Annotation
The record is a 102-nucleotide RNA sequence from Salana multivorans, which matches "mraW RNA" in Rfam. The organism belongs to Salana, within Bacteria. The match comes from Rfam's covariance-model search (55 bits).
[Rfam]
Nucleotides: 102
Base pairs, nucleotide, nucleotide: 010089011088012087013086015084016083019080020079022077023076024075025074026073028071029070030069031068032064033063034062036060037059038058039057041055042054043053
Number, partner (000 for none) and nucleotide at each position: 001000c002000c003000c004000g005000u006000a007000u008000c009000u010089g011088u012087c013086g014000c015084g016083c017000g018000a019080g020079g021000u022077c023076u024075c025074c026073c027000a028071c029070c030069g031068a032064c033063g034062c035000c036060u037059c038058u039057g040000a041055c042054g043053c044000a045000c046000u047000u048000c049000c050000c051000c052000g053043g054042c055041g056000c057039c058038a059037g060036a061000a062034g063033c064032g065000c066000c067000c068031u069030c070029g071028g072000g073026g074025g075024g076023a077022g078000u079020c080019c081000u082000g083016g084015c085000c086013c087012g088011a089010c090000a091000g092000g093000u094000c095000g096000c097000c098000a099000u100000c101000c102000a